[Rfam]
RNA sequence: UGGCAACAAUGAUGAGAGGAGUUGUAACUGUACGUAGUGUUUCGUUACUCCAUGGAGACACCAGUCCCUCUAAACUGAUGUUGCCC
Numbered sequence: 001u002g003g004c005a006a007c008a009a010u011g012a013u014g015a016g017a018g019g020a021g022u023u024g025u026a027a028c029u030g031u032a033c034g035u036a037g038u039g040u041u042u043c044g045u046u047a048c049u050c051c052a053u054g055g056a057g058a059c060a061c062c063a064g065u066c067c068c069u070c071u072a073a074a075c076u077g078a079u080g081u082u083g084c085c086c
Stems, first nucleotide, its partner, number of pairs: 002085006